[Rfam]
RNA: RT-7 RNA
Nucleotides: 237
Base pairs, nucleotide, nucleotide: 001039002038008033009032010031011030012029013028014027015026016025051231052230053229054228055227056226057225059137060136061135062134063133064132065131066130077126079124080123081122084119152213153212154211155210156209158207159206160205161204164201165200166199
Number, partner (000 for none) and nucleotide at each position: 001039u002038c003000g004000a005000g006000a007000g008033u009032a010031u011030u012029g013028c014027a015026a016025g017000u018000c019000c020000u021000g022000u023000u024000g025016c026015u027014u028013g029012c030011a031010g032009u033008a034000g035000g036000g037000u038002g039001a040000u041000a042000u043000g044000u045000a046000a047000a048000u049000u050000c051231a052230g053229c054228a055227a056226u057225c058000c059137a060136c061135u062134g063133g064132c065131g066130g067000a068000g069000u070000a071000a072000u073000g074000u075000c076000g077126u078000a079124u080123a081122g082000g083000a084119c085000u086000a087000c088000g089000u090000g091000u092000u093000g094000u095000g096000c097000g098000g099000u100000u101000a102000u103000g104000c105000g106000c107000c108000g109000c110000c111000u112000g113000c114000a115000c116000c117000c118000c119084g120000a121000g122081c123080u124079a125000c126077g127000u128000u129000u130066c131065c132064g133063u134062u135061a136060g137059u138000u139000a140000u141000c142000c143000a144000c145000a146000c147000c148000a149000g150000u151000c152213u153212g154211u155210a156209u157000g158207g159206g160205g161204a162000c163000c164201g165200a166199g167000c168000a169000g170000g171000g172000c173000a174000u175000c176000c177000u178000g179000u180000u181000u182000u183000g184000a185000u186000a187000g188000g189000g190000a191000u192000g193000a194000u195000u196000c197000c198000a199166c200165u201164c202000u203000u204161u205160u206159c207158c208000g209156g210155u211154a212153c213152a214000u215000u216000c217000a218000u219000u220000u221000c222000a223000g224000u225057g226056a227055u228054u229053g230052c231051u232000u233000u234000u235000u236000c237000c